Notes: The family of this 107-nucleotide sequence from Bisgaardia hudsonensis is "Glycine riboswitch aptamer". The match comes from Rfam's covariance-model search (51 bits).

[Rfam]
RNA sequence: CCCUUGGAGAGAUCCAAAUGUGCCAAUGCACAAAAUGGACGCCGAAGGCGCAAAAGAGCGGUAGUUUUUUCUAUCGUUUUUCAAACGCUCAGGCAAAAGGACAGGGG
Numbered sequence: 001c002c003c004u005u006g007g008a009g010a011g012a013u014c015c016a017a018a019u020g021u022g023c024c025a026a027u028g029c030a031c032a033a034a035a036u037g038g039a040c041g042c043c044g045a046a047g048g049c050g051c052a053a054a055a056g057a058g059c060g061g062u063a064g065u066u067u068u069u070u071c072u073a074u075c076g077u078u079u080u081u082c083a084a085a086c087g088c089u090c091a092g093g094c095a096a097a098a099g100g101a102c103a104g105g106g107g
Base pairs, nucleotide, nucleotide: 001107002106003105004104005103006102013039014038015037016036041094042093043092044090045089048088049087050086054081055080056079057078058077059076060075061074062073063072064071
From the family's description: This family represents the bacterial glycine riboswitch. Taxonomically the source falls in Bisgaardia (Bacteria, Pseudomonadota, Gammaproteobacteria, Pasteurellaceae).